Record summary
A member of the RNA family "TPP riboswitch aptamer (THI element)" from Pseudoduganella ginsengisoli, 104 nucleotides long. The family's consensus secondary structure is taken from published work. It scores 62 bits against the family's covariance model.

RNA sequence: ACGCUUCGCUAGGGGUCCUGGCCGUUCAAAAAACGUCCGGGUGAGAGAUACCCUCCGUACCUGAUCUGGAUAAUGCCAGCGAAGGAAAGCGUCGUGAUGAUCCC
Dot-bracket structure: ......((((((((.((((((...............)))))......)..)))).....(((...((((......))))...)))..)))).............